[Rfam]
RNA sequence: UUUUUUAGGGAGACUUUGGCCUUCCCGCAAGGGAGGGCCUGGAAACUUCCUU
Numbered sequence: 001u002u003u004u005u006u007a008g009g010g011a012g013a014c015u016u017u018g019g020c021c022u023u024c025c026c027g028c029a030a031g032g033g034a035g036g037g038c039c040u041g042g043a044a045a046c047u048u049c050c051u052u
Stems, first nucleotide, its partner, number of pairs: 008052003012048002015042002018039008
RNA: HIV Ribosomal frameshift signal
Organism: Lentivirus humimdef1